[Rfam]
RNA sequence: AUAGAGGUGCCCACGUCACUCUCCUUUAGGAUCUUUACCCUUUCCUAAAAAUUGUCGUGGGCAUUUUAAA
Numbered sequence: 001a002u003a004g005a006g007g008u009g010c011c012c013a014c015g016u017c018a019c020u021c022u023c024c025u026u027u028a029g030g031a032u033c034u035u036u037a038c039c040c041u042u043u044c045c046u047a048a049a050a051a052u053u054g055u056c057g058u059g060g061g062c063a064u065u066u067u068a069a070a
Base pairs, nucleotide, nucleotide: 006065007064008063009062010061011060012059013058014057015056017054018053027047028046029045030044031043
Rfam assigns this 70-nucleotide RNA to the family "potC RNA".